Shown here is a 128-nucleotide RNA from Aquarana catesbeiana, a member of the family "Small Cajal body specific RNA 4". Rfam's curators write: scaRNAs are a specific class of small nuclear RNAs which localise to the Cajal bodies and guide the modification of RNA polymerase II transcribed spliceosomal RNAs U1, U2, U4, U5 and U12. ACA26 belongs to the H/ACA box class of guide RNAs as it has the predicted hairpin-hinge-hairpin-tail structure, conserved H/ACA-box motifs and is found associated with GAR1. It scores 81 bits against the family's covariance model. Its Rfam clan is "SCARNA4 clan". The source organism's lineage runs through Eukaryota, Eumetazoa, Chordata, Neobatrachia and Aquarana. Rfam classes the family as a small Cajal body RNA. The family's consensus secondary structure was predicted with RNAfold.
[Rfam]
RNA sequence: UGUGGAGGGUGAAGAAAGCAGAGUCUGUGCAGUGAGGCCUUGCUGAUACUGCCCUCCUAUAUGAACAGGGUGGACAGAGCAGCCAGCUAAUAAGACAUUUUGCAGGCUGACUGCACCGCCCUACAUCC
Numbered sequence: 001u002g003u004g005g006a007g008g009g010u011g012a013a014g015a016a017a018g019c020a021g022a023g024u025c026u027g028u029g030c031a032g033u034g035a036g037g038c039c040u041u042g043c044u045g046a047u048a049c050u051g052c053c054c055u056c057c058u059a060u061a062u063g064a065a066c067a068g069g070g071u072g073g074a075c076a077g078a079g080c081a082g083c084c085a086g087c088u089a090a091u092a093a094g095a096c097a098u099u100u101u102g103c104a105g106g107c108u109g110a111c112u113g114c115a116c117c118g119c120c121c122u123a124c125a126u127c128c
Base pairs, nucleotide, nucleotide: 002060003059004057005056006055007054008053009052017044018043019042021040023038024037025036026035068120069119078112079111080109081108082107083106084105086103090101092099